[Rfam]
RNA sequence: GUUCGGGGCAUUGCCUUGACUGGGGGCGUCAGUCUCUUUAGACUCAUGCACCCCUAAAUUUGGCAGGGCGUUGUGCUCUGCCAUUUUGCUUUUGUUGUAAUAAAUAGCGUCGAAAGACAACAGUGGAGCUAGUAGA
Numbered sequence: 001g002u003u004c005g006g007g008g009c010a011u012u013g014c015c016u017u018g019a020c021u022g023g024g025g026g027c028g029u030c031a032g033u034c035u036c037u038u039u040a041g042a043c044u045c046a047u048g049c050a051c052c053c054c055u056a057a058a059u060u061u062g063g064c065a066g067g068g069c070g071u072u073g074u075g076c077u078c079u080g081c082c083a084u085u086u087u088g089c090u091u092u093u094g095u096u097g098u099a100a101u102a103a104a105u106a107g108c109g110u111c112g113a114a115a116g117a118c119a120a121c122a123g124u125g126g127a128g129c130u131a132g133u134a135g136a
Stems, first nucleotide, its partner, number of pairs: 004018006022053003026049004031044001034041002061083009103133001105131004109118003
RNA: Pseudomonas rpsL leader